[Rfam]
RNA sequence: CCCAUGCAGUUCAUCGCGCAUGGAUGGGAUAUGCAGGAAAUACAUACCAGAUUGGGAGUGAUGCCCCGCCAUUAAAAUAGAUCUGAAAGCUGAAACGUAAAAUACUGUGCCCAUCCAGUGGUUUUAUAAAGUAAGUGAGUAGCGGUAGGCCACAGUACUGUUAUAAAGCUGUGG
Numbered sequence: 001c002c003c004a005u006g007c008a009g010u011u012c013a014u015c016g017c018g019c020a021u022g023g024a025u026g027g028g029a030u031a032u033g034c035a036g037g038a039a040a041u042a043c044a045u046a047c048c049a050g051a052u053u054g055g056g057a058g059u060g061a062u063g064c065c066c067c068g069c070c071a072u073u074a075a076a077a078u079a080g081a082u083c084u085g086a087a088a089g090c091u092g093a094a095a096c097g098u099a100a101a102a103u104a105c106u107g108u109g110c111c112c113a114u115c116c117a118g119u120g121g122u123u124u125u126a127u128a129a130a131g132u133a134a135g136u137g138a139g140u141a142g143c144g145g146u147a148g149g150c151c152a153c154a155g156u157a158c159u160g161u162u163a164u165a166a167a168g169c170u171g172u173g174g
Stems, first nucleotide, its partner, number of pairs: 002023006013062004026112003049072001053068004083145003089136003093132001097127007104119002107114001150174007